[Rfam]
RNA sequence: AGAAAAGUAGAUGCCGCCCCGCACAGGGGCAACACUAAUAGACCGACAUGGAUGCAAAUUCAACGAGAGACGCGGAUCACAGAAAAACAACCCGCGCCCCGCGCAACCCAA
Numbered sequence: 001a002g003a004a005a006a007g008u009a010g011a012u013g014c015c016g017c018c019c020c021g022c023a024c025a026g027g028g029g030c031a032a033c034a035c036u037a038a039u040a041g042a043c044c045g046a047c048a049u050g051g052a053u054g055c056a057a058a059u060u061c062a063a064c065g066a067g068a069g070a071c072g073c074g075g076a077u078c079a080c081a082g083a084a085a086a087a088c089a090a091c092c093c094g095c096g097c098c099c100c101g102c103g104c105a106a107c108c109c110a111a
Base pairs, nucleotide, nucleotide: 012074013073014072016030017029018028019027020026059066060065095103096102097101
RNA: Burkholderia sRNA Bp1_Cand684_SIPHT